[Rfam]
Nucleotides: 081
Stems, first nucleotide, its partner, number of pairs: 001025002004023001006021001009018003045052002054081003063074004
Number, partner (000 for none) and nucleotide at each position: 001025c002024u003000u004023u005000u006021c007000a008000a009018u010017c011016c012000g013000u014000a015000a016011g017010g018009a019000a020000a021006g022000u023004a024002g025001g026000a027000a028000u029000g030000a031000a032000a033000u034000g035000a036000u037000a038000u039000u040000g041000g042000g043000a044000g045052u046051c047000a048000g049000c050000a051046g052045a053000a054081g055080c056079c057000a058000u059000a060000g061000u062000a063074g064073c065072u066071u067000a068000c069000a070000a071066a072065a073064g074063u075000g076000a077000a078000g079056g080055g081054c

A member of the RNA family "Group II catalytic intron D1-D4-1" from Spirobacillus cienkowskii, 81 nucleotides long. About the family: Group II introns are found in rRNA, tRNA and mRNA of organelles in fungi, plants and protists, and also in mRNA in bacteria. A search with the family's covariance model found it, with a score of 43 bits.